A member of the RNA family "U5 spliceosomal RNA" from Paspalum vaginatum, 119 nucleotides long.
[Rfam]
RNA sequence: AGCUGCGUGGCGAGCACAAAGCGAACUAUUCUUUCGCCUUUUACUAAGGAAUACCGUGUGCACGCCACAAUAAGCAGCAUACGCUAAUUUUUGAAGGUGUUCUUCUAAUCUUGGAGAAC
Dot-bracket structure: ..((((.(((((.(((((........((((((((...........))))))))...))))).)))))......))))......................((((((.......)))))).
The base pairs follow the family's consensus structure, which is taken from published work. Rfam classes the family as a spliceosomal small nuclear RNA. U5 RNA is a component of both types of known spliceosome. The precise function of this molecule is unknown, though it is known that the 5' loop is required for splice site selection and p220 binding, and that both the 3' stem-loop and the Sm site are important for Sm protein binding and cap methylation.